[Rfam]
The family of this 161-nucleotide RNA from Vitis rotundifolia is "MIR530 microRNA precursor family".
The literature on the family includes a 2008 paper in Plant J by Lu et al., "Stress-responsive microRNAs in Populus".
Taxonomically the source falls in Vitis (Eukaryota, Viridiplantae, Streptophytina, eudicotyledons).
Gene Ontology terms of the family: RISC complex and miRNA-mediated post-transcriptional gene silencing.
The base pairs follow the family's consensus structure, which was predicted with WAR.
RNA sequence: GCCAAGGUGAUGCCUUUAUCUGCAUUUGCACCUGCACCUUAUCGUAUUGUGUUUGUUUGGGUGUCAUCUCUGCCUUGAGCUUGCUCAAAAAGGGUAUAUACUGGGAGAGAUGAUGGUGAGGAAUAGGUGCAGGUGAAGGUGCAGAUGAAUGCCACUUUGGC
Numbered sequence: 001g002c003c004a005a006g007g008u009g010a011u012g013c014c015u016u017u018a019u020c021u022g023c024a025u026u027u028g029c030a031c032c033u034g035c036a037c038c039u040u041a042u043c044g045u046a047u048u049g050u051g052u053u054u055g056u057u058u059g060g061g062u063g064u065c066a067u068c069u070c071u072g073c074c075u076u077g078a079g080c081u082u083g084c085u086c087a088a089a090a091a092g093g094g095u096a097u098a099u100a101c102u103g104g105g106a107g108a109g110a111u112g113a114u115g116g117u118g119a120g121g122a123a124u125a126g127g128u129g130c131a132g133g134u135g136a137a138g139g140u141g142c143a144g145a146u147g148a149a150u151g152c153c154a155c156u157u158u159g160g161c
Stems, first nucleotide, its partner, number of pairs: 001161009012152002015149013029135011